[Rfam]
RNA sequence: UAAGUAUUCUGUUAGGUGAGGCUCCUAAAUAGAGAUACGCUUCUGCCCAAAAAUGUCGAGAGACGCCAAUGGGUCAACAGGAAAGAUCGGACGAAGGUCUUUUUUAACGAAGCUGGUAUCCCUGCCUAUGCUAUUUAGUGCUAAAACUUGAACGAGGGAAUAAUAG
Number, nucleotide and partner (000 for none) at each position: 001u000002a000003a000004g000005u162006a161007u160008u159009c158010u157011g153012u152013u095014a000015g148016g147017u146018g000019a000020g142021g141022c140023u000024c000025c138026u137027a136028a135029a134030u133031a132032g131033a000034g000035a000036u000037a000038c000039g113040c112041u111042u110043c109044u000045g074046c073047c072048c071049a070050a000051a000052a000053a000054u065055g064056u063057c062058g000059a000060g000061a000062g057063a056064c055065g054066c000067c000068a000069a000070u049071g048072g047073g046074u045075c000076a000077a000078c000079a000080g104081g103082a102083a101084a000085g000086a098087u097088c096089g000090g000091a000092c000093g000094a000095a013096g088097g087098u086099c000100u000101u083102u082103u081104u080105u000106a000107a000108c000109g043110a042111a041112g040113c039114u000115g126116g125117u124118a000119u000120c000121c000122c000123u000124g117125c116126c115127u000128a000129u000130g000131c032132u031133a030134u029135u028136u027137a026138g025139u000140g022141c021142u020143a000144a000145a000146a017147c016148u015149u000150g000151a000152a012153c011154g000155a000156g000157g010158g009159a008160a007161u006162a005163a000164u000165a000166g000
A member of the RNA family "M-box riboswitch aptamer (ykoK leader)" from Neobacillus bataviensis, 166 nucleotides long.
The base pairs follow the family's consensus structure.
It scores 146 bits against the family's covariance model.
For this family Rfam cites "Magnesium-sensing riboswitches in bacteria" (Ramesh and Winkler, RNA Biol, 2010).
The family has 159 seed sequences and 1,095 matches in Rfam 15.1.
From the family's description: M-box riboswitch, also know as ykoK leader is described as a metaloregulatory RNA that sense divalent metals and function as a genetic control element of genes related to divalent metal transport in bacteria. It was first reported upstream of the B.subtilis ykoK gene and genes with related functions in other bacteria.